This 70-nucleotide sequence from Gorilla gorilla belongs to the Rfam family "Selenocysteine insertion sequence 1". It is annotated as a cis-regulatory element. Lineage of the source: Eukaryota > Eumetazoa > Chordata > Euarchontoglires > Gorilla gorilla. It scores 39 bits against the family's covariance model.
RNA sequence: UUUGCAUUAAUGAAGACUACACAGAAAACCUUUCUAAGGAUUUGUGUGGAUCAGAUACAUACUUGGCAAA
Numbered sequence: 001u002u003u004g005c006a007u008u009a010a011u012g013a014a015g016a017c018u019a020c021a022c023a024g025a026a027a028a029c030c031u032u033u034c035u036a037a038g039g040a041u042u043u044g045u046g047u048g049g050a051u052c053a054g055a056u057a058c059a060u061a062c063u064u065g066g067c068a069a070a
Base pairs, nucleotide, nucleotide: 001070002069003068004067005066015052016051017049018048019047020046021045022044023043024042030039031038032037